[Rfam]
RNA sequence: AUCUGCAAAGGGCAAACUCCGCGAAAGUGGAGGACGCAAAGUCAACGGUCUAAAGGGCGCGAGCCCCAUGACGGCAGGACUGCCAGA
Numbered sequence: 001a002u003c004u005g006c007a008a009a010g011g012g013c014a015a016a017c018u019c020c021g022c023g024a025a026a027g028u029g030g031a032g033g034a035c036g037c038a039a040a041g042u043c044a045a046c047g048g049u050c051u052a053a054a055g056g057g058c059g060c061g062a063g064c065c066c067c068a069u070g071a072c073g074g075c076a077g078g079a080c081u082g083c084c085a086g087a
Stems, first nucleotide, its partner, number of pairs: 012037002017032006040081004047075001048072003055066004
Rfam assigns this 87-nucleotide RNA from Massilia sp. WF1 to the family "c-di-GMP-I riboswitch aptamer". Taxonomically the source falls in Massilia (Bacteria, Pseudomonadati, Burkholderiales, Oxalobacteraceae). GEMM was predicted in a large-scale screen for bacterial structured RNA regulatory elements. Genes associated with GEMM are involved in a diverse array of functions, including chemotaxis regulation, signal transduction, secretion and chitin.